[Rfam]
RNA sequence: UGUUUGCUAUGAUGAAUCUCAAGGACGGUAUCUGACAAAGGUGGCUCAUCAAUGAGUUCUCCUUGGUUGAUUACACAUCCUAAACUGAUCAUAUAUUCUGAGCAAAAG
Numbered sequence: 001u002g003u004u005u006g007c008u009a010u011g012a013u014g015a016a017u018c019u020c021a022a023g024g025a026c027g028g029u030a031u032c033u034g035a036c037a038a039a040g041g042u043g044g045c046u047c048a049u050c051a052a053u054g055a056g057u058u059c060u061c062c063u064u065g066g067u068u069g070a071u072u073a074c075a076c077a078u079c080c081u082a083a084a085c086u087g088a089u090c091a092u093a094u095a096u097u098c099u100g101a102g103c104a105a106a107a108g
Stems, first nucleotide, its partner, number of pairs: 001108001003106005036066001038064004
Small nucleolar RNA Z118/Z121/Z120: a 108-nucleotide RNA sequence from Hordeum vulgare. The family's consensus secondary structure was predicted with PFOLD. Rfam classes the family as a C/D-box small nucleolar RNA. It scores 82 bits against the family's covariance model. A reference for the family is Chen et al. (2003), "The high diversity of snoRNAs in plants: identification and comparative study of 120 snoRNA genes from Oryza sativa", Nucleic Acids Res.